[Rfam]
RNA sequence: UAAAGAAGAGGCGUAACCGCAGGUAGCGAUACUUGAGGAAAGUCCGGGCUCCUUCGGAAAGGAUGCCGGCUAACGGCCGGGGUGCCGGCGUACGGGCGAAAGUCCGCAGGCAGGCAUACAGACAGCGCAGCAGAAAAUAAACCGCCCGCAAAGCGGGUAAGGGUGAAAAGGCGGGGUAAGAGCCCACCGGGUAUGCGGCAACGCAUACCGCAUUGCAAGCCUCAUCCGGAGCAAGGUCAAGCGGUAACUGAUUAUUCCGAAUCGAUAGUUACAGGUAGACCGCACAAAAUGCGGGGCAAUUCGCAUUGCAGACAGAUGGUUACGGAUUACAGAACCCGGCUUAUACUCUUCUUUUUUUU
Number, nucleotide and partner (000 for none) at each position: 001u000002a354003a353004a352005g351006a350007a349008g348009a347010g346011g344012c324013g323014u322015a321016a320017c319018c318019g000020c035021a034022g033023g032024u031025a030026g000027c000028g000029a000030u025031a024032c023033u022034u021035g020036a000037g000038g000039a000040a342041a341042g340043u000044c339045c338046g337047g336048g335049c231050u230051c229052c228053u000054u000055c000056g263057g262058a000059a000060a000061g227062g226063a225064u224065g223066c080067c079068g078069g077070c076071u000072a000073a000074c000075g000076g070077c069078c068079g067080g066081g119082g117083u116084g115085c114086c000087g000088g000089c000090g000091u000092a000093c000094g000095g000096g000097c000098g000099a000100a000101a000102g000103u000104c000105c000106g000107c000108a000109g000110g000111c000112a000113g000114g085115c084116a083117u082118a000119c081120a222121g221122a000123c000124a000125g220126c219127g216128c215129a214130g000131c000132a000133g000134a000135a000136a000137a000138u000139a000140a000141a000142c162143c161144g158145c157146c156147c155148g154149c153150a000151a000152a000153g149154c148155g147156g146157g145158u144159a000160a000161g143162g142163g000164u000165g000166a000167a000168a000169a000170g188171g187172c000173g185174g184175g183176g000177u000178a000179a000180g000181a000182g000183c175184c174185c173186a000187c171188c170189g211190g209191g208192u207193a206194u205195g204196c203197g202198g000199c000200a000201a000202c197203g196204c195205a194206u193207a192208c191209c190210g000211c189212a000213u000214u129215g128216c127217a000218a000219g126220c125221c121222u120223c065224a064225u063226c062227c061228g052229g051230a050231g049232c000233a000234a000235g281236g280237u279238c278239a000240a000241g000242c000243g000244g272245u271246a270247a269248c268249u267250g000251a000252u000253u000254a000255u265256u000257c000258c264259g000260a000261a000262u057263c056264g258265a255266u000267a249268g248269u247270u246271a245272c244273a000274g000275g000276u000277a000278g238279a237280c236281c235282g000283c000284a000285c000286a000287a000288a307289a306290u305291g304292c303293g302294g301295g300296g000297c000298a000299a000300u295301u294302c293303g292304c291305a290306u289307u288308g000309c000310a000311g000312a000313c000314a000315g000316a000317u000318g018319g017320u016321u015322a014323c013324g012325g000326a000327u000328u000329a000330c000331a000332g000333a000334a000335c048336c047337c046338g045339g044340c042341u041342u040343a000344u011345a000346c010347u009348c008349u007350u006351c005352u004353u003354u002355u000356u000357u000358u000359u000